[Rfam]
RNA sequence: CCAUGGUGGCGUUUUUGGGGACAGAUGUCCGUGUCGUGGGUUUCCUGGGCCGGCGGCGUGAUCGGUGACUCGCCCUCCUGCCCCAGGGGGA
Number, nucleotide and partner (000 for none) at each position: 001c000002c000003a000004u088005g000006g000007u000008g084009g083010c000011g082012u000013u000014u000015u000016u000017g000018g079019g078020g077021a076022c000023a000024g000025a000026u000027g069028u068029c067030c065031g000032u000033g062034u061035c060036g059037u058038g057039g000040g000041u000042u000043u000044c000045c000046u000047g000048g000049g000050c000051c000052g000053g000054c000055g000056g000057c038058g037059u036060g035061a034062u033063c000064g000065g030066u000067g029068a028069c027070u000071c000072g000073c000074c000075c000076u021077c020078c019079u018080g000081c000082c011083c009084c008085a000086g000087g000088g004089g000090g000091a000

NoRC associated RNA, pRNA: a 91-nucleotide RNA from Nomascus leucogenys.
On this family, see Mayer et al., EMBO Rep 2008: "The structure of NoRC-associated RNA is crucial for targeting the chromatin remodelling complex NoRC to the nucleolus".
Taxonomically the source falls in Nomascus (Eukaryota, Eumetazoa, Vertebrata, Sarcopterygii).
Rfam 15.1 lists 354 matches to the family in 128 species.
Pairs were carried over by alignment from the consensus structure, which is taken from published work.